[Rfam]
RNA sequence: UUGUUUGCGGGUGUAGCAUCAUCAAGAUUCACACCACAAAAGCACCGCGGCGAUGCAAUCUCUCUCUCUCUACCAAUGUUUUACUAGGUGAGAAUCUUGAUGAUGCUGCAUCGGCAAUAAA
Numbered sequence: 001u002u003g004u005u006u007g008c009g010g011g012u013g014u015a016g017c018a019u020c021a022u023c024a025a026g027a028u029u030c031a032c033a034c035c036a037c038a039a040a041a042g043c044a045c046c047g048c049g050g051c052g053a054u055g056c057a058a059u060c061u062c063u064c065u066c067u068c069u070c071u072a073c074c075a076a077u078g079u080u081u082u083a084c085u086a087g088g089u090g091a092g093a094a095u096c097u098u099g100a101u102g103a104u105g106c107u108g109c110a111u112c113g114g115c116a117a118u119a120a121a
Stems, first nucleotide, its partner, number of pairs: 010112021032090004
Shown here is a 121-nucleotide RNA sequence from Actinidia chinensis, a member of the family "mir-172 microRNA precursor family". For this family Rfam cites "Computational Identification of Plant MicroRNAs and Their Targets, Including a Stress-Induced miRNA" (Jones-Rhoades and Bartel, Mol Cell, 2004). NCBI's taxonomy places the organism under Eukaryota, Streptophytina, eudicotyledons, Gunneridae, Actinidia chinensis. About the family: mir-172 has been experimentally verified in Arabidopsis thaliana. This family is thought to target mRNAs coding for APETALA2-like transcription factors. The mature sequence is excised from the 3' arm of the hairpin.